[Rfam]
RNA sequence: UGCUGUGAUGUUGUAAUUUGCAUCUUAUCCGGUAUUCAGGGACAGUUGCCUGCUGUCCAGAUACUGUUGCCGUUGAGCUGAAGAUUUUCUGAAACUGAGCA
Numbered sequence: 001u002g003c004u005g006u007g008a009u010g011u012u013g014u015a016a017u018u019u020g021c022a023u024c025u026u027a028u029c030c031g032g033u034a035u036u037c038a039g040g041g042a043c044a045g046u047u048g049c050c051u052g053c054u055g056u057c058c059a060g061a062u063a064c065u066g067u068u069g070c071c072g073u074u075g076a077g078c079u080g081a082a083g084a085u086u087u088u089c090u091g092a093a094a095c096u097g098a099g100c101a
Stems, first nucleotide, its partner, number of pairs: 001101003021083001023081002030072005039064001041057005
Small nucleolar RNA SNORD16: a 101-nucleotide sequence from Varanus komodoensis. The family's RNA type in Rfam is C/D-box small nucleolar RNA. Its Rfam clan is "SNORD16 clan".